Rfam assigns this 176-nucleotide sequence from Shewanella sediminis to the family "Lysine riboswitch aptamer". Rfam links the family to the GO term lysine biosynthetic process. The organism belongs to Shewanella sediminis, within Bacteria. Pairs were carried over by alignment from the consensus structure, which is taken from published work.
RNA sequence: GGGUACAGAAGAGGAGCGUUAACUAGGUAGUAAGUUUGAAGAGGCCAAACUCUGAUGACGACUUAUGAGGGAGAUUAGCGCCGAGAUAUUGAUAUAUUUUGACGUAUACAAUAUCGGUCAUUUGGGCUGAAUCCCAUCGAUUGUCACCUGUUUAUUGGUGGAGAGCUUCUGGUGAU
Numbered sequence: 001g002g003g004u005a006c007a008g009a010a011g012a013g014g015a016g017c018g019u020u021a022a023c024u025a026g027g028u029a030g031u032a033a034g035u036u037u038g039a040a041g042a043g044g045c046c047a048a049a050c051u052c053u054g055a056u057g058a059c060g061a062c063u064u065a066u067g068a069g070g071g072a073g074a075u076u077a078g079c080g081c082c083g084a085g086a087u088a089u090u091g092a093u094a095u096a097u098u099u100u101g102a103c104g105u106a107u108a109c110a111a112u113a114u115c116g117g118u119c120a121u122u123u124g125g126g127c128u129g130a131a132u133c134c135c136a137u138c139g140a141u142u143g144u145c146a147c148c149u150g151u152u153u154a155u156u157g158g159u160g161g162a163g164a165g166c167u168u169c170u171g172g173u174g175a176u
Base pairs, nucleotide, nucleotide: 006171007170008169009168010167011166016081017080018079019078020077021076022075024073030066031065032064033063034062035061036060085115086114087113088112089111090110091109093108094107095106096105097104116142117141118140119139123136124135125134126133144161145160146159147158148157150155
Dot-bracket structure: .....((((((....(((((((.(.....(((((((.......................)))))))......).)))))))...(((((((.(((((......))))))))))))((((...((((......))))..)))).(((((.(....).)))))....)))))).....